[Rfam]
Rfam assigns this 105-nucleotide sequence from Vibrio sp. 99-8-1 to the family "Alpha operon ribosome binding site".
RNA sequence: AGUAGUAAACCGCAGCGUAUCCUGUACGGGCUUUGCUGCGGAUAAUUUCUUAUAAAGUACUAGGAGUGAAUAGUGGCCCGUAUAGCUGGCAUUAACAUUCCUGAU
Numbered sequence: 001a002g003u004a005g006u007a008a009a010c011c012g013c014a015g016c017g018u019a020u021c022c023u024g025u026a027c028g029g030g031c032u033u034u035g036c037u038g039c040g041g042a043u044a045a046u047u048u049c050u051u052a053u054a055a056a057g058u059a060c061u062a063g064g065a066g067u068g069a070a071u072a073g074u075g076g077c078c079c080g081u082a083u084a085g086c087u088g089g090c091a092u093u094a095a096c097a098u099u100c101c102u103g104a105u
Stems, first nucleotide, its partner, number of pairs: 004047003008043001010041004021089002027080004036103001
The family's consensus secondary structure is taken from published work. The family's RNA type in Rfam is cis-regulatory element. It scores 90 bits against the family's covariance model.